A member of the RNA family "Nuclear RNase P" from Coniochaeta hoffmannii, 424 nucleotides long. It is annotated as a ribozyme. Ribonuclease P (RNase P) is a ubiquitous endoribonuclease, found in archaea, bacteria and eukarya as well as chloroplasts and mitochondria. Its best characterised activity is the generation of mature 5'-ends of tRNAs by cleaving the 5'-leader elements of precursor-tRNAs. NCBI's taxonomy places the organism under Eukaryota, Sordariomycetes, Coniochaetales, Coniochaetaceae, Coniochaeta.
RNA sequence: UCCUCUUCAACGCUGCGUUUCUAUGCUACAAACGGAGAGACAGCUGCGCAAGCAGUCCUGUCUCUCAUCUUCUGUCUCUGGCAUAUGAGAAAUUCGGAGAAUCAGCUUCACUCUUUCAGCUGGACCCGUCUCGCUUUUUUUUUUUUUUGGCGCGACGGUGUUUUCCAAGCUCUGCCGGUGACGGCCCAGCGCGAUCGUUUUCUGACGCGUCCCGUAAUUGGCAUCAGAAAAGCAGGGCUCUGGGUCGAGGAUGCUUGCCGUCCUCGUUCUCCAGCAGUUCCUCUGGGAGGGCCAUUACGAAGCUUGUGGUCAUACACUUGAGUGCGAUACGCAGCGUGCGGGGUCUUUUUCUCCUCCUCUUCUUCUCUGGGGAGGAGGAGGGGAGGAAGCCUGUACAAUUCGAUUCCGAUUACUCUGUUGAGGA
Numbered sequence: 001u002c003c004u005c006u007u008c009a010a011c012g013c014u015g016c017g018u019u020u021c022u023a024u025g026c027u028a029c030a031a032a033c034g035g036a037g038a039g040a041c042a043g044c045u046g047c048g049c050a051a052g053c054a055g056u057c058c059u060g061u062c063u064c065u066c067a068u069c070u071u072c073u074g075u076c077u078c079u080g081g082c083a084u085a086u087g088a089g090a091a092a093u094u095c096g097g098a099g100a101a102u103c104a105g106c107u108u109c110a111c112u113c114u115u116u117c118a119g120c121u122g123g124a125c126c127c128g129u130c131u132c133g134c135u136u137u138u139u140u141u142u143u144u145u146u147u148u149g150g151c152g153c154g155a156c157g158g159u160g161u162u163u164u165c166c167a168a169g170c171u172c173u174g175c176c177g178g179u180g181a182c183g184g185c186c187c188a189g190c191g192c193g194a195u196c197g198u199u200u201u202c203u204g205a206c207g208c209g210u211c212c213c214g215u216a217a218u219u220g221g222c223a224u225c226a227g228a229a230a231a232g233c234a235g236g237g238c239u240c241u242g243g244g245u246c247g248a249g250g251a252u253g254c255u256u257g258c259c260g261u262c263c264u265c266g267u268u269c270u271c272c273a274g275c276a277g278u279u280c281c282u283c284u285g286g287g288a289g290g291g292c293c294a295u296u297a298c299g300a301a302g303c304u305u306g307u308g309g310u311c312a313u314a315c316a317c318u319u320g321a322g323u324g325c326g327a328u329a330c331g332c333a334g335c336g337u338g339c340g341g342g343g344u345c346u347u348u349u350u351c352u353c354c355u356c357c358u359c360u361u362c363u364u365c366u367c368u369g370g371g372g373a374g375g376a377g378g379a380g381g382g383g384a385g386g387a388a389g390c391c392u393g394u395a396c397a398a399u400u401c402g403a404u405u406c407c408g409a410u411u412a413c414u415c416u417g418u419u420g421a422g423g424a
Stems, first nucleotide, its partner, number of pairs: 001424004008417002012335007022085004035066009095408005104304004174185004217296001219294004235282003336396007
Dot-bracket structure: ((((...((..(((((((...((((.........(((((((((..............)))))))))...............)))).........[[[[[....((((..................................................................((((....))))...............................(.((((............(((..........................................)))........)))).)....))))........................)))))))(((((((...............................................))))))).......]]]]].......))...))))